A member of the RNA family "Bacterial RNase P class B" from Sporolactobacillus inulinus, 390 nucleotides long. The literature on the family includes a 1998 paper in Annu Rev Biochem by Frank and Pace, "Ribonuclease P: unity and diversity in a tRNA processing ribozyme". The organism belongs to Sporolactobacillus, within Bacteria. Ribonuclease P (RNase P) is a ubiquitous endoribonuclease, found in archaea, bacteria and eukarya as well as chloroplasts and mitochondria. Its best characterised activity is the generation of mature 5'-ends of tRNAs by cleaving the 5'-leader elements of precursor-tRNAs. Cellular RNase Ps are ribonucleoproteins. RNA from bacterial RNase Ps retains its catalytic activity in the absence of the protein subunit, i.e. it is a ribozyme. Isolated eukaryotic and archaeal RNase P RNA has not been shown to retain its catalytic function, but is still essential for the catalytic activity of the holoenzyme. Although the archaeal and eukaryotic holoenzyme s have a much greater protein content than the bacterial ones, the RNA cores from all the three lineages are homologous -- helices corresponding to P1, P2, P3, P4, and P10/11 are common to all cellular RNase P RNAs. Yet, there is considerable sequence variation, particularly among the eukaryotic RNAs.
RNA sequence: AUGUUCGGGUAAUCGCUGUAUUCCUUGUGAAUAUAGAGGAAAGUCCAUGCUCGCACGGUCUGUGAUGACCGUAGUGUUCGUGCCUGGCGAAGUCAUAAGCCAGGGUAGUUCAGAGUGAUCUGGACUAACGGCGGGAGAGAAGCCUGUGUUCCUUUUGGAAUAUGGCUUGCUAUCCCAUAAAGUGCCAUAGUGACGAUGUCUUUUGGAAACAAAAGAAGUGGAACGCGGUAAACCCCUCGAGCGGGAAACUCAAACUUGGUAGAGGACCCCUUUGGAAGGAACCAAACGGAAAAAGGGACAGAUGAUUCUGUAGAUAGAUGAUUACCGCUUUUGUACGAGAAGCAGUUUUGCUUCGUUUGAGUGCGAAAGUACAGAACAUGGCUUACAGAA
Numbered sequence: 001a002u003g004u005u006c007g008g009g010u011a012a013u014c015g016c017u018g019u020a021u022u023c024c025u026u027g028u029g030a031a032u033a034u035a036g037a038g039g040a041a042a043g044u045c046c047a048u049g050c051u052c053g054c055a056c057g058g059u060c061u062g063u064g065a066u067g068a069c070c071g072u073a074g075u076g077u078u079c080g081u082g083c084c085u086g087g088c089g090a091a092g093u094c095a096u097a098a099g100c101c102a103g104g105g106u107a108g109u110u111c112a113g114a115g116u117g118a119u120c121u122g123g124a125c126u127a128a129c130g131g132c133g134g135g136a137g138a139g140a141a142g143c144c145u146g147u148g149u150u151c152c153u154u155u156u157g158g159a160a161u162a163u164g165g166c167u168u169g170c171u172a173u174c175c176c177a178u179a180a181a182g183u184g185c186c187a188u189a190g191u192g193a194c195g196a197u198g199u200c201u202u203u204u205g206g207a208a209a210c211a212a213a214a215g216a217a218g219u220g221g222a223a224c225g226c227g228g229u230a231a232a233c234c235c236c237u238c239g240a241g242c243g244g245g246a247a248a249c250u251c252a253a254a255c256u257u258g259g260u261a262g263a264g265g266a267c268c269c270c271u272u273u274g275g276a277a278g279g280a281a282c283c284a285a286a287c288g289g290a291a292a293a294a295g296g297g298a299c300a301g302a303u304g305a306u307u308c309u310g311u312a313g314a315u316a317g318a319u320g321a322u323u324a325c326c327g328c329u330u331u332u333g334u335a336c337g338a339g340a341a342g343c344a345g346u347u348u349u350g351c352u353u354c355g356u357u358u359g360a361g362u363g364c365g366a367a368a369g370u371a372c373a374g375a376a377c378a379u380g381g382c383u384u385a386c387a388g389a390a
Stems, first nucleotide, its partner, number of pairs: 004390003007386001008326007016036006041384003045381005050245005055072006078240003082236001083104006105129001106127009130235002133176004141167004148161005182233002184229003199216007249264003268297006298311005328369009